[Rfam]
RNA sequence: GCAGCGCAACCGCCGAAUCCGCACCGGCCUUGACGUGCCCUCGCGGAGCCGGGGACCCAAUCCCCUUGGGGUGAAUCCGCGCCGUGCCGGCGCGGUAGGGCGACCUCUUACGCCCGAACCCGUCAGCUAACCCGGUAGGCGGGCGAAGAGGAAAGAG
Numbered sequence: 001g002c003a004g005c006g007c008a009a010c011c012g013c014c015g016a017a018u019c020c021g022c023a024c025c026g027g028c029c030u031u032g033a034c035g036u037g038c039c040c041u042c043g044c045g046g047a048g049c050c051g052g053g054g055a056c057c058c059a060a061u062c063c064c065c066u067u068g069g070g071g072u073g074a075a076u077c078c079g080c081g082c083c084g085u086g087c088c089g090g091c092g093c094g095g096u097a098g099g100g101c102g103a104c105c106u107c108u109u110a111c112g113c114c115c116g117a118a119c120c121c122g123u124c125a126g127c128u129a130a131c132c133c134g135g136u137a138g139g140c141g142g143g144c145g146a147a148g149a150g151g152a153a154a155g156a157g
Base pairs, nucleotide, nucleotide: 011141012140013139014138018047019046020045021044022043048136049135050134051133052132053131058068059067069121070120071119077095078094079093080092098115099114100113101112
Shown here is a 157-nucleotide RNA sequence from Actinospica robiniae, a member of the family "c-di-AMP riboswitch aptamer (ydaO/yuaA leader)". The match comes from Rfam's covariance-model search (89 bits). Rfam describes the family as follows. This family represents a conserved RNA structure found upstream of the ydaO and yuaA genes in Bacillus subtilis and related genes in other bacteria.